[Rfam]
RNA sequence: GUUCGGGUAUGAUGACUAAACAAAUUGCCAGAGCUUCAGCACUGCUGAAUAGUAUUUUGCACGUCAGUCUGAUCCGAAU
Numbered sequence: 001g002u003u004c005g006g007g008u009a010u011g012a013u014g015a016c017u018a019a020a021c022a023a024a025u026u027g028c029c030a031g032a033g034c035u036u037c038a039g040c041a042c043u044g045c046u047g048a049a050u051a052g053u054a055u056u057u058u059g060c061a062c063g064u065c066a067g068u069c070u071g072a073u074c075c076g077a078a079u
Stems, first nucleotide, its partner, number of pairs: 001079007
Dot-bracket structure: (((((((.................................................................)))))))
RNA: Small nucleolar RNA Z122